Background:
tRNA: an 86-nucleotide RNA sequence from Bombilactobacillus apium. Taxonomically the source falls in Bombilactobacillus (Bacteria, Bacillati, Lactobacillales, Lactobacillaceae).

[Rfam]
RNA sequence: GCGGGUAUGGCGGAAUUGGCAGACGCGCAAGACUAAGGAUCUUGUGGAGAAUUAUCUCCGUGGAAGUUCGAGUCUUCUUACCCGCA
Numbered sequence: 001g002c003g004g005g006u007a008u009g010g011c012g013g014a015a016u017u018g019g020c021a022g023a024c025g026c027g028c029a030a031g032a033c034u035a036a037g038g039a040u041c042u043u044g045u046g047g048a049g050a051a052u053u054a055u056c057u058c059c060g061u062g063g064a065a066g067u068u069c070g071a072g073u074c075u076u077c078u079u080a081c082c083c084g085c086a
Stems, first nucleotide, its partner, number of pairs: 001085007010026003028044005062078005